[Rfam]
RNA sequence: AACGACAAUGGCAAACCUGGUGAAAGCCAGGGACGCAAAGCUAUGGGUCUUCCAGAAUAAUUCUGAUGACUGCCAGGCUACCGAAU
Numbered sequence: 001a002a003c004g005a006c007a008a009u010g011g012c013a014a015a016c017c018u019g020g021u022g023a024a025a026g027c028c029a030g031g032g033a034c035g036c037a038a039a040g041c042u043a044u045g046g047g048u049c050u051u052c053c054a055g056a057a058u059a060a061u062u063c064u065g066a067u068g069a070c071u072g073c074c075a076g077g078c079u080a081c082c083g084a085a086u
Stems, first nucleotide, its partner, number of pairs: 001086001003083002011036002016031006034072001039079004044075003047070003
RNA: c-di-GMP-I-GGC riboswitch aptamer
Organism: Dehalobacter sp. 12DCB1